[Rfam]
RNA sequence: UCUGAAAUCAGGUAAGCCACUGACUAACGUACAUUGCGCCUAUCCCAAUUCCACUGUGCGUGUGACAGCGGCUAACCUGGUUUUAGGGAGACUUCCC
Numbered sequence: 001u002c003u004g005a006a007a008u009c010a011g012g013u014a015a016g017c018c019a020c021u022g023a024c025u026a027a028c029g030u031a032c033a034u035u036g037c038g039c040c041u042a043u044c045c046c047a048a049u050u051c052c053a054c055u056g057u058g059c060g061u062g063u064g065a066c067a068g069c070g071g072c073u074a075a076c077c078u079g080g081u082u083u084u085a086g087g088g089a090g091a092c093u094u095c096c097c
Stems, first nucleotide, its partner, number of pairs: 005083008015073004020068003024064001025062002028060006035053002
RNA: mir-210 microRNA precursor family
Organism: Oncorhynchus kisutch